[Rfam]
RNA sequence: AAACAGUCGAGAACCUUUUGAAUCAAGUAGUGUAGUGAUUCAAAAGGUUCUCGCAA
Numbered sequence: 001a002a003a004c005a006g007u008c009g010a011g012a013a014c015c016u017u018u019u020g021a022a023u024c025a026a027g028u029a030g031u032g033u034a035g036u037g038a039u040u041c042a043a044a045a046g047g048u049u050c051u052c053g054c055a056a
Stems, first nucleotide, its partner, number of pairs: 008053018
The family of this 56-nucleotide RNA from Laguncularia racemosa is "Plastid-ccsA-ndhD-1 3UTR RNA". Plastid-ccsA-ndhD-1 is a non-coding RNA (ncRNA) recognised in plastids. It was found in the three prime untranslated region (3UTR) of ccsA and ndhD genes, its 3UTR location suggests a role in transcript maturation. By type it is a cis-regulatory element.